This 73-nucleotide RNA sequence from Odontophorus gujanensis belongs to the Rfam family "Small nucleolar RNA SNORD19".
For this family Rfam cites "RNomics: an experimental approach that identifies 201 candidates for novel, small, non-messenger RNAs in mouse" (Huttenhofer et al., EMBO J, 2001).
Pairs were carried over by alignment from the consensus structure.
A search with the family's covariance model found it, with a score of 45 bits.
RNA sequence: GAGAAAUGAGGAUAAAGACUUUGUCUUAAUUCUCUAUGAAGACUUCAGAUCCAACUCUGAUCUCACAUGCAAG
Numbered sequence: 001g002a003g004a005a006a007u008g009a010g011g012a013u014a015a016a017g018a019c020u021u022u023g024u025c026u027u028a029a030u031u032c033u034c035u036a037u038g039a040a041g042a043c044u045u046c047a048g049a050u051c052c053a054a055c056u057c058u059g060a061u062c063u064c065a066c067a068u069g070c071a072a073g
Stems, first nucleotide, its partner, number of pairs: 001064004
Dot-bracket structure: ((((........................................................)))).........